[Rfam]
RNA sequence: AGCAAUACUGCACUAGUAAGAUAUGGAUCCGACGCCUCUUGAAGGUUAACAUAGGCUCUCCAUACUCCACUUCGACUCAAUACGUCCCCGGUGUACAGAACGGUAACAUGUCUCUCUAAAUAUCUGAGCUUGGGUACAGGGGGAAACCCAACCCUUUGGGGAGGUGGAUGAUAUGGCUAAAAUGAGUGGA
Numbered sequence: 001a002g003c004a005a006u007a008c009u010g011c012a013c014u015a016g017u018a019a020g021a022u023a024u025g026g027a028u029c030c031g032a033c034g035c036c037u038c039u040u041g042a043a044g045g046u047u048a049a050c051a052u053a054g055g056c057u058c059u060c061c062a063u064a065c066u067c068c069a070c071u072u073c074g075a076c077u078c079a080a081u082a083c084g085u086c087c088c089c090g091g092u093g094u095a096c097a098g099a100a101c102g103g104u105a106a107c108a109u110g111u112c113u114c115u116c117u118a119a120a121u122a123u124c125u126g127a128g129c130u131u132g133g134g135u136a137c138a139g140g141g142g143g144a145a146a147c148c149c150a151a152c153c154c155u156u157u158g159g160g161g162a163g164g165u166g167g168a169u170g171a172u173a174u175g176g177c178u179a180a181a182a183u184g185a186g187u188g189g190a
Stems, first nucleotide, its partner, number of pairs: 009100001011098001014095001020067002022064006029055002071190004076186004081181001082094003086103002107175006116167002122165004130151006153160002
Rfam assigns this 190-nucleotide RNA from Anopheles stephensi to the family "drz-agam-2-2 ribozyme". The family has 5 seed sequences and 486 matches in Rfam 15.1. Pairs were carried over by alignment from the consensus structure, which is taken from published work. A search with the family's covariance model found it, with a score of 170 bits. A reference for the family is Webb et al. (2009), "Widespread occurrence of self-cleaving ribozymes", Science.